Shown here is a 96-nucleotide sequence from Sapajus apella, a member of the family "Y RNA". Y RNAs are components of the Ro ribonucleoprotein particle (Ro RNP), in association with Ro60 and La proteins. The Y RNAs and Ro60 and La proteins are well conserved, but the function of the Ro RNP is not known.
[Rfam]
RNA sequence: GGCUGGUCCGAUGGUAAUGGGUUAUCAGAACUUAUUAACAUUAGUGUCUCUAAAGUUGGUAUACAACUCCCCACUGCUAAAUUUAACUUGUUUUUU
Number, nucleotide and partner (000 for none) at each position: 001g092002g091003c090004u000005g088006g087007u086008c000009c000010g084011a083012u000013g000014g000015u079016a075017a000018u073019g072020g071021g070022u000023u000024a000025u000026c000027a000028g000029a000030a000031c000032u000033u061034a060035u059036u000037a057038a056039c000040a000041u000042u000043a000044g000045u000046g000047u000048c000049u000050c000051u000052a000053a000054a000055g000056u038057u037058g000059g035060u034061a033062u000063a000064c000065a000066a000067c000068u000069c000070c021071c020072c019073a018074c000075u016076g000077c000078u000079a015080a000081a000082u000083u011084u010085a000086a007087c006088u005089u000090g003091u002092u001093u000094u000095u000096u000

The base pairs follow the family's consensus structure, which is taken from published work.